Rfam assigns this 135-nucleotide RNA sequence from Papio anubis to the family "Small nucleolar RNA SNORA48". Rfam classes the family as an H/ACA-box small nucleolar RNA. NCBI's taxonomy places the organism under Eukaryota, Vertebrata, Eutheria, Cercopithecidae, Papio. Clan: SNORA48 clan. The snoRNA ACA 48 has been identified to guide pseudouridylation of the residue U3797 in the 28S rRNA subunit.

[Rfam]
RNA sequence: UGUCUUUGACCUCAGUAGAGUGGCACCUGGUUGGUGGUGCCCAUCUUAUAUCAGCCAGGGACAAAGCAACCCCUCGUUCAUCCCAGCUUGGCUUUUGAACUGUACCCAUACCUGGUUCAUGCCUUGGACACAUGG
Numbered sequence: 001u002g003u004c005u006u007u008g009a010c011c012u013c014a015g016u017a018g019a020g021u022g023g024c025a026c027c028u029g030g031u032u033g034g035u036g037g038u039g040c041c042c043a044u045c046u047u048a049u050a051u052c053a054g055c056c057a058g059g060g061a062c063a064a065a066g067c068a069a070c071c072c073c074u075c076g077u078u079c080a081u082c083c084c085a086g087c088u089u090g091g092c093u094u095u096u097g098a099a100c101u102g103u104a105c106c107c108a109u110a111c112c113u114g115g116u117u118c119a120u121g122c123c124u125u126g127g128a129c130a131c132a133u134g135g
Base pairs, nucleotide, nucleotide: 001063002062003061004060005059006058007057008056011054012053014051018047019046020045022041023040024039025038026037027036076129077128078127079126080125090123091122092121096119097118098117100115101114102113